[Rfam]
Rfam assigns this 220-nucleotide RNA from Streptomyces sp. Go-475 to the family "Streptomyces sRNA 4677". It scores 108 bits against the family's covariance model. The organism belongs to Streptomyces, within Bacteria. The literature on the family includes a 2014 paper in PLoS One by Hindra et al., "Complex intra-operonic dynamics mediated by a small RNA in Streptomyces coelicolor". About the family: Located in the intergenic region between anti-sigma factor SCO4677 gene and a putative regulatory protein gene SCO4676. scr4677 expression requires the SCO4677 activity and scr4677 sRNA itself seem to affect the levels of the SCO4676-associated transcripts. Pairs were carried over by alignment from the consensus structure.
RNA sequence: GGUCCCGACGCCAAAGACCAAAGAACCGGGGAAAGAACCAACCCGCCCCCACCGCCCCCGCGGCUCACCCGCAGGAGUGAACAUCACCAACUCGGCUGGCGUGGCGGGGAGUCGGUGGUGCACCGUCGGCACAGACAACCGAACAAACGAAUACGGCCCCCGCCGGGACUGGCAUCCCGGUGCGAGGGCCUGAUCACCAAGGAAGCAGAGACCCUUCCCG
Numbered sequence: 001g002g003u004c005c006c007g008a009c010g011c012c013a014a015a016g017a018c019c020a021a022a023g024a025a026c027c028g029g030g031g032a033a034a035g036a037a038c039c040a041a042c043c044c045g046c047c048c049c050c051a052c053c054g055c056c057c058c059c060g061c062g063g064c065u066c067a068c069c070c071g072c073a074g075g076a077g078u079g080a081a082c083a084u085c086a087c088c089a090a091c092u093c094g095g096c097u098g099g100c101g102u103g104g105c106g107g108g109g110a111g112u113c114g115g116u117g118g119u120g121c122a123c124c125g126u127c128g129g130c131a132c133a134g135a136c137a138a139c140c141g142a143a144c145a146a147a148c149g150a151a152u153a154c155g156g157c158c159c160c161c162g163c164c165g166g167g168a169c170u171g172g173c174a175u176c177c178c179g180g181u182g183c184g185a186g187g188g189c190c191u192g193a194u195c196a197c198c199a200a201g202g203a204a205g206c207a208g209a210g211a212c213c214c215u216u217c218c219c220g
Stems, first nucleotide, its partner, number of pairs: 007059001065080004070075001095130005155190005161184003165178004201218005